A member of the RNA family "Lysine riboswitch aptamer" from Phocicoccus pinnipedialis, 166 nucleotides long. Pairs were carried over by alignment from the consensus structure, which is taken from published work.
RNA sequence: AAUACAAGUAGAGGUUGCACACAACAAUAGUAGUUACCAGUAGCAGACAUGCGUGGAUCGGUAAUGAAAGGGGAGUGUGCCGAAGGGCAGCAUCGGUAGAAUGCUUCUCUGGGACCUGUCUUAAUAGGGCAGGUACUGUCAGUUUUACUGAUGCGCUACACGCCAA
Number, nucleotide and partner (000 for none) at each position: 001a000002a000003u000004a000005c000006a000007a000008g159009u158010a157011g156012a000013g000014g000015u000016u000017g080018c079019a078020c077021a076022c075023a000024a000025c072026a000027a000028u000029a000030g000031u000032a000033g065034u064035u063036a062037c061038c060039a000040g058041u000042a000043g000044c000045a000046g000047a000048c000049a000050u000051g000052c000053g000054u000055g000056g000057a000058u040059c000060g038061g037062u036063a035064a034065u033066g000067a000068a000069a000070g000071g000072g025073g000074a000075g022076u021077g020078u019079g018080c017081c000082g000083a000084a110085g109086g108087g107088c000089a105090g104091c103092a102093u101094c000095g000096g000097u000098a000099g000100a000101a093102u092103g091104c090105u089106u000107c087108u086109c085110u084111g137112g136113g000114a134115c133116c132117u131118g130119u129120c128121u127122u000123a000124a000125u000126a000127g121128g120129g119130c118131a117132g116133g115134u114135a000136c112137u111138g000139u151140c150141a149142g148143u147144u000145u000146u000147a143148c142149u141150g140151a139152u000153g000154c000155g000156c011157u010158a009159c008160a000161c000162g000163c000164c000165a000166a000